[Rfam]
Overview
A member of the RNA family "ASpks TB sRNA" from Mycobacterium marinum, 74 nucleotides long. Rfam classes the family as an antisense RNA. It is one of the family's seed sequences.

RNA sequence: UUUGAUCGAGCCCACCCACAGCGGCUGAUCCGUCGGGCGUCCCUGCCCAUAGGUGGCCAACAACGCCUCGGCUU
Numbered sequence: 001u002u003u004g005a006u007c008g009a010g011c012c013c014a015c016c017c018a019c020a021g022c023g024g025c026u027g028a029u030c031c032g033u034c035g036g037g038c039g040u041c042c043c044u045g046c047c048c049a050u051a052g053g054u055g056g057c058c059a060a061c062a063a064c065g066c067c068u069c070g071g072c073u074u
Stems, first nucleotide, its partner, number of pairs: 014026001016024002034070002038065002044059002047056003